[Rfam]
RNA sequence: CGAGUUAACCAGACAAUCGCUGCUUGCUUCUAGCAAGGGGAGGAAAGUCCGGGCUCCAAAGAGCAGGGUGCCAGAUAACGUCUGGGCGGCGUAAGCCGACGACAAGUGCAGCAGAGAGAAGACCGCCUAAGCACGCAAGUGCCGGUAAGGGUGAAAGGGUGCGGUAAGAGCGCACCGGGCCACUGGUAACAGCUGGCAGCAGGGUAAACUCCACCCGGAGCAAGACCAAAUAGGAACUCGUACGGCGUGGCUCGCGUUGAGUUCGGGUAGGUUGCUUGAGCCUUAGAGCGAUUUAAGGCCUAGACGAAUGAUUGUCCACGACAGAACCCGGCUUACCGGUUAACUCCCUCU
Numbered sequence: 001c002g003a004g005u006u007a008a009c010c011a012g013a014c015a016a017u018c019g020c021u022g023c024u025u026g027c028u029u030c031u032a033g034c035a036a037g038g039g040g041a042g043g044a045a046a047g048u049c050c051g052g053g054c055u056c057c058a059a060a061g062a063g064c065a066g067g068g069u070g071c072c073a074g075a076u077a078a079c080g081u082c083u084g085g086g087c088g089g090c091g092u093a094a095g096c097c098g099a100c101g102a103c104a105a106g107u108g109c110a111g112c113a114g115a116g117a118g119a120a121g122a123c124c125g126c127c128u129a130a131g132c133a134c135g136c137a138a139g140u141g142c143c144g145g146u147a148a149g150g151g152u153g154a155a156a157g158g159g160u161g162c163g164g165u166a167a168g169a170g171c172g173c174a175c176c177g178g179g180c181c182a183c184u185g186g187u188a189a190c191a192g193c194u195g196g197c198a199g200c201a202g203g204g205u206a207a208a209c210u211c212c213a214c215c216c217g218g219a220g221c222a223a224g225a226c227c228a229a230a231u232a233g234g235a236a237c238u239c240g241u242a243c244g245g246c247g248u249g250g251c252u253c254g255c256g257u258u259g260a261g262u263u264c265g266g267g268u269a270g271g272u273u274g275c276u277u278g279a280g281c282c283u284u285a286g287a288g289c290g291a292u293u294u295a296a297g298g299c300c301u302a303g304a305c306g307a308a309u310g311a312u313u314g315u316c317c318a319c320g321a322c323a324g325a326a327c328c329c330g331g332c333u334u335a336c337c338g339g340u341u342a343a344c345u346c347c348c349u350c351u
Stems, first nucleotide, its partner, number of pairs: 002346009012316007020040002023037006045334003049331005054220004061253004066216005071085005086100001087098004101211002106209002108205002123150002125146003131142004158176006177200001179197004183192003224273004234264006244258005280299008